[Rfam]
RNA: U4 spliceosomal RNA
Organism: Mustela putorius
Nucleotides: 136
Base pairs, nucleotide, nucleotide: 020052021051022050023049024048026047027046028045034042035041088112089111090110093108094107095106097104098103127136128135
Number, partner (000 for none) and nucleotide at each position: 001000a002000g003000c004000u005000u006000u007000g008000c009000g010000c011000a012000g013000u014000g015000g016000c017000a018000g019000u020052a021051u022050c023049g024048u025000a026047g027046c028045c029000a030000a031000u032000g033000a034042g035041g036000u037000u038000u039000a040000u041035c042034c043000g044000a045028g046027g047026c048024a049023c050022g051021a052020u053000u054000a055000u056000u057000g058000c059000u060000a061000a062000u063000u064000g065000a066000a067000a068000a069000c070000u071000u072000a073000u074000u075000a076000u077000u078000g079000a080000a081000u082000u083000a084000g085000a086000a087000a088112u089111u090110c091000u092000a093108a094107u095106a096000a097104a098103a099000u100000g101000u102000a103098u104097u105000c106095u107094g108093u109000a110090g111089g112088a113000a114000a115000c116000u117000u118000u119000u120000a121000a122000a123000a124000c125000u126000u127136c128135u129000a130000u131000u132000a133000a134000a135128a136127g